Source information:
This 62-nucleotide RNA from Alligator sinensis belongs to the Rfam family "mir-5697 microRNA precursor family".

[Rfam]
RNA sequence: AGGCUGUCUCAUGAAGAUGGGUGGCAGUCCACACCGCCACCCAUCUUCAUGAGACAGCCUGA
Numbered sequence: 001a002g003g004c005u006g007u008c009u010c011a012u013g014a015a016g017a018u019g020g021g022u023g024g025c026a027g028u029c030c031a032c033a034c035c036g037c038c039a040c041c042c043a044u045c046u047u048c049a050u051g052a053g054a055c056a057g058c059c060u061g062a
Stems, first nucleotide, its partner, number of pairs: 001060011013048013

The source organism's lineage runs through Eukaryota, Chordata, Euteleostomi, Sauropsida and Alligator.
A search with the family's covariance model found it, with a score of 50 bits.